[Rfam]
RNA sequence: GGGAGCGCAGGAUCCUGGGCUGUGUCCCCCAGCGCCCUGGGCUCCAGGGCCUGCGCUGCUGGAAUCGCGCUCCCUGGGCUGCAGCUCCC
Dot-bracket structure: (((((.((((...((.(((.((((((..(((((((...(.(((....)))).))))))..)))..)))).)))..)).))))..)))))
Shown here is an 89-nucleotide RNA sequence from Canis lupus, a member of the family "mir-8799 microRNA precursor family".
Its Rfam clan is "mir-8791 microRNA precursor clan".
Rfam links the family to the GO terms RISC complex and miRNA-mediated post-transcriptional gene silencing.